This 96-nucleotide RNA from Jatropha curcas belongs to the Rfam family "MIR473 microRNA precursor family".
It scores 54 bits against the family's covariance model.
Rfam links the family to the GO terms RISC complex and miRNA-mediated post-transcriptional gene silencing.
The family has 6 seed sequences and 189 matches in Rfam 15.1.
RNA sequence: AUUGCUCACUCUCCCUCAAGGGCUUCUGUAUGUACAUUUUCUGGUUGAAACGAUCAGUUAAGUGUUUACACAGAGGUCCUUAGGAAGAGUGGAUAA
Numbered sequence: 001a002u003u004g005c006u007c008a009c010u011c012u013c014c015c016u017c018a019a020g021g022g023c024u025u026c027u028g029u030a031u032g033u034a035c036a037u038u039u040u041c042u043g044g045u046u047g048a049a050a051c052g053a054u055c056a057g058u059u060a061a062g063u064g065u066u067u068a069c070a071c072a073g074a075g076g077u078c079c080u081u082a083g084g085a086a087g088a089g090u091g092g093a094u095a096a
Stems, first nucleotide, its partner, number of pairs: 006092007014084002018081012